[Rfam]
RNA sequence: GUCUAAAGUGGUGAUGGAUCCCGCCGGAGCGCAGUUGCAGCUCGAACCGCCGUCUGGCUGAUGGUUCCUACCUUAGA
Numbered sequence: 001g002u003c004u005a006a007a008g009u010g011g012u013g014a015u016g017g018a019u020c021c022c023g024c025c026g027g028a029g030c031g032c033a034g035u036u037g038c039a040g041c042u043c044g045a046a047c048c049g050c051c052g053u054c055u056g057g058c059u060g061a062u063g064g065u066u067c068c069u070a071c072c073u074u075a076g077a
Stems, first nucleotide, its partner, number of pairs: 010025004016068003020064002049058003
Dot-bracket structure: .........((((..[[[.[[)))).......................(((....)))....]].]]].........